[Rfam]
RNA sequence: GUUGGCUCAGUGGUCUGUCCAUCGUGGAAGGCCAAAAUGACUUGCUGAUUUCAGGAGCUUUGAUUUAUGCGUA
Numbered sequence: 001g002u003u004g005g006c007u008c009a010g011u012g013g014u015c016u017g018u019c020c021a022u023c024g025u026g027g028a029a030g031g032c033c034a035a036a037a038u039g040a041c042u043u044g045c046u047g048a049u050u051u052c053a054g055g056a057g058c059u060u061u062g063a064u065u066u067a068u069g070c071g072u073a
Base pairs, nucleotide, nucleotide: 012033013032014031015030016029018028019027020026038062041057042056043055045054046053047052
This 73-nucleotide RNA sequence from Enterobacter sp. 638 belongs to the Rfam family "Repression of heat shock gene expression (ROSE) element". A reference for the family is Nocker et al. (2001), "A mRNA-based thermosensor controls expression of rhizobial heat shock genes", Nucleic Acids Res. This family represents a 5' UTR cis-regulatory element found in heat shock mRNAs and is known as the ROSE (repression of heat shock gene expression) element. Rfam's curators put it in the seed alignment. The source organism's lineage runs through Bacteria, Pseudomonadati, Pseudomonadota, Enterobacterales and Enterobacter.